[Rfam]
RNA sequence: AUAAGGGUAGGUUCGACUAAGACCGUCACCUCGUGUAACAACGUCGAACGACCCUACAUCGUGUAGG
Dot-bracket structure: ..........(((((((.......((.((.....)).))...)))))))...(((((.....)))))